[Rfam]
RNA: tRNA
Organism: Streptomyces lividans
RNA sequence: UCCUCCGUAGCUCAAUUGGCAGAGCAGCCGGCUGUUAACCGGCAGGUUACUGGUUCGAGUCCAGUCGGGGGAG
Numbered sequence: 001u002c003c004u005c006c007g008u009a010g011c012u013c014a015a016u017u018g019g020c021a022g023a024g025c026a027g028c029c030g031g032c033u034g035u036u037a038a039c040c041g042g043c044a045g046g047u048u049a050c051u052g053g054u055u056c057g058a059g060u061c062c063a064g065u066c067g068g069g070g071g072a073g
Stems, first nucleotide, its partner, number of pairs: 001072007010025004027043005049065005